This 84-nucleotide RNA from Halpernia frigidisoli belongs to the Rfam family "Flavo-1 RNA".
It is annotated as a small RNA.
The base pairs follow the family's consensus structure, which is taken from published work.

[Rfam]
RNA sequence: CUGCGGCCGUGAUAGAAGCGGCAUCCUUUUUUGGCGCGAGCGCAGCGAGCGCCAAAAAAGAUACAGCGGAUAGCGCGAAUUGUC
Numbered sequence: 001c002u003g004c005g006g007c008c009g010u011g012a013u014a015g016a017a018g019c020g021g022c023a024u025c026c027u028u029u030u031u032u033g034g035c036g037c038g039a040g041c042g043c044a045g046c047g048a049g050c051g052c053c054a055a056a057a058a059a060g061a062u063a064c065a066g067c068g069g070a071u072a073g074c075g076c077g078a079a080u081u082g083u084c
Base pairs, nucleotide, nucleotide: 009076010075011074013072014071018067019066023062024061025060029057030056031055032054033053034052035051036050
A search with the family's covariance model found it, with a score of 63 bits.